[Rfam]
RNA sequence: CGAAAUGCAAAGAACGGGAAGAGUAGGCAGCGAUCGCUGACAGAGAGGAAAGGUCACCGGCUGAGAGCCUUUCUAAGUAAGAAGCUGUCCGAAGUGCGCCCGGGAGCAGGUAUGCCGAAACAGGAGUAGGUAUACCCGGUUUAAACCGUUAUAUUUACCACGAGGGAGAUGUCUUUCCUUAGGACAUCUAACAAGAGUGGAACCGCGGAAAGCCGUAUAAGGCCUUUCGUCUCUUGC
Numbered sequence: 001c002g003a004a005a006u007g008c009a010a011a012g013a014a015c016g017g018g019a020a021g022a023g024u025a026g027g028c029a030g031c032g033a034u035c036g037c038u039g040a041c042a043g044a045g046a047g048g049a050a051a052g053g054u055c056a057c058c059g060g061c062u063g064a065g066a067g068c069c070u071u072u073c074u075a076a077g078u079a080a081g082a083a084g085c086u087g088u089c090c091g092a093a094g095u096g097c098g099c100c101c102g103g104g105a106g107c108a109g110g111u112a113u114g115c116c117g118a119a120a121c122a123g124g125a126g127u128a129g130g131u132a133u134a135c136c137c138g139g140u141u142u143a144a145a146c147c148g149u150u151a152u153a154u155u156u157a158c159c160a161c162g163a164g165g166g167a168g169a170u171g172u173c174u175u176u177c178c179u180u181a182g183g184a185c186a187u188c189u190a191a192c193a194a195g196a197g198u199g200g201a202a203c204c205g206c207g208g209a210a211a212g213c214c215g216u217a218u219a220a221g222g223c224c225u226u227u228c229g230u231c232u233c234u235u236g237c
Base pairs, nucleotide, nucleotide: 007107008106015102016101017100018099026090027089028087029086030085031084036078037077038076047074048073049072050071051070052069053068054067110135111134112133113132114131115130116129137148138147139146167189168188169187170186171185172184173183174182175181194234195233196232197231205230206229207228208227209226
Rfam assigns this 237-nucleotide RNA from Thermosyntropha lipolytica to the family "T-box leader".
The match comes from Rfam's covariance-model search (123 bits).
Rfam classes the family as a cis-regulatory leader.
Rfam links the family to the GO term tRNA binding.